[Rfam]
This 117-nucleotide sequence belongs to the Rfam family "ALIL pseudoknot". Rfam 15.1 lists 2,146 matches to the family in 1,098 species. It is annotated as a cis-regulatory element. The family's consensus secondary structure is taken from published work. It scores 100 bits against the family's covariance model.

RNA sequence: CGCUUUUUUCGCCCAGGCGGAGCUCGACCGCAAACCCAAGUGAUGGUCAAAUUCAUUGAUGAUGAAAAGAAAAUGUAUGGGGUCGAGUCGAUUUGCAGGAUACUGCCAAUUGCCCCA
Numbered sequence: 001c002g003c004u005u006u007u008u009u010c011g012c013c014c015a016g017g018c019g020g021a022g023c024u025c026g027a028c029c030g031c032a033a034a035c036c037c038a039a040g041u042g043a044u045g046g047u048c049a050a051a052u053u054c055a056u057u058g059a060u061g062a063u064g065a066a067a068a069g070a071a072a073a074u075g076u077a078u079g080g081g082g083u084c085g086a087g088u089c090g091a092u093u094u095g096c097a098g099g100a101u102a103c104u105g106c107c108a109a110u111u112g113c114c115c116c117a
Stems, first nucleotide, its partner, number of pairs: 017031004078117005089112002092109002095106004